[Rfam]
RNA sequence: CACCUUGGGUUGGUUAAUGCUACACCAACAAGGUAGACAUACAUCCUGUGGAGUAGAACAUGAGCGAUAAAAUUAUUCACCUGACUGAC
Numbered sequence: 001c002a003c004c005u006u007g008g009g010u011u012g013g014u015u016a017a018u019g020c021u022a023c024a025c026c027a028a029c030a031a032g033g034u035a036g037a038c039a040u041a042c043a044u045c046c047u048g049u050g051g052a053g054u055a056g057a058a059c060a061u062g063a064g065c066g067a068u069a070a071a072a073u074u075a076u077u078c079a080c081c082u083g084a085c086u087g088a089c
Stems, first nucleotide, its partner, number of pairs: 009068004014063003020056004025051003031047003073088003077084002
Notes:
Rfam assigns this 89-nucleotide sequence from Serratia plymuthica to the family "TrxA 5' UTR thermometer". The source organism's lineage runs through Bacteria, Pseudomonadota, Gammaproteobacteria, Enterobacterales and Serratia plymuthica. Rfam's curators write: Involved in protection against oxidative stress. For this family Rfam cites "Temperature-responsive in vitro RNA structurome of Yersinia pseudotuberculosis" (Righetti et al., Proc Natl Acad Sci U S A, 2016).